RNA sequence: GGCGUAAAGCGUCUGUAGGUGGCUUUUCAAGUCCGCCGUCAAAUCCCAGGGCUCAACCCUGGACAGGCGGUGGAAACUACCAAGCUGGAGUACGGUAGGGGCAGAGGGAAUUUCCGGUGGAGCGGUGAAAUGCGUAGAGAUCGGAAAGAACACCAACGGCGAAAGCACUCUGCUGGGCCGACACUGACACUGAGAGACGAAAGCUAGGGGAGCAAAUGGGAUUAGAUACCCCAGUAGUCCUAGCCGUAAACGAUGGAUACUAGGCGCUGUGCGUAUCGACCCGUGCAGUGCUGUAGCUAACGCGUUAAGUAUCCCGCCUGGGGAGUACGUUCGCAAGAAUGAAACUCAAAGGAAU
Numbered sequence: 001g002g003c004g005u006a007a008a009g010c011g012u013c014u015g016u017a018g019g020u021g022g023c024u025u026u027u028c029a030a031g032u033c034c035g036c037c038g039u040c041a042a043a044u045c046c047c048a049g050g051g052c053u054c055a056a057c058c059c060u061g062g063a064c065a066g067g068c069g070g071u072g073g074a075a076a077c078u079a080c081c082a083a084g085c086u087g088g089a090g091u092a093c094g095g096u097a098g099g100g101g102c103a104g105a106g107g108g109a110a111u112u113u114c115c116g117g118u119g120g121a122g123c124g125g126u127g128a129a130a131u132g133c134g135u136a137g138a139g140a141u142c143g144g145a146a147a148g149a150a151c152a153c154c155a156a157c158g159g160c161g162a163a164a165g166c167a168c169u170c171u172g173c174u175g176g177g178c179c180g181a182c183a184c185u186g187a188c189a190c191u192g193a194g195a196g197a198c199g200a201a202a203g204c205u206a207g208g209g210g211a212g213c214a215a216a217u218g219g220g221a222u223u224a225g226a227u228a229c230c231c232c233a234g235u236a237g238u239c240c241u242a243g244c245c246g247u248a249a250a251c252g253a254u255g256g257a258u259a260c261u262a263g264g265c266g267c268u269g270u271g272c273g274u275a276u277c278g279a280c281c282c283g284u285g286c287a288g289u290g291c292u293g294u295a296g297c298u299a300a301c302g303c304g305u306u307a308a309g310u311a312u313c314c315c316g317c318c319u320g321g322g323g324a325g326u327a328c329g330u331u332c333g334c335a336a337g338a339a340u341g342a343a344a345c346u347c348a349a350a351g352g353a354a355u
Stems, first nucleotide, its partner, number of pairs: 001318003009315001011198004016192001018191003022085004030078002032074009046062006089185003093180004100174007107151001111147008122133003159166002203244006212238002217233004255314006263292011296303002320347003329340004